[Rfam]
RNA sequence: CGACCCUUCUUAAGCCGAGGGUCACCUAGCCAACUGACGUUGUUAGUGGACACAGAUUGUUCACACGUAUAAACGGCCAAACACCUUGCUUGUGUUUGGCCUCUUUUUU
Dot-bracket structure: .(((((............))))).................(.(..(((((((.....)))))))......).)...((((((((.......))))))))..........

Overview
The family of this 109-nucleotide sequence from Vibrio navarrensis is "Qrr RNA". Lineage of the source: Bacteria > Pseudomonadota > Gammaproteobacteria > Vibrionales > Vibrio. The family has 30 seed sequences and 148 matches in Rfam 15.1. Gene Ontology term of the family: quorum sensing. Rfam's curators write: This family represents a set of small RNAs (the Qrr RNAs) that are thought to be involved in the regulation of quorum sensing in Vibrio species. A search with the family's covariance model found it, with a score of 98 bits. It is annotated as a small RNA.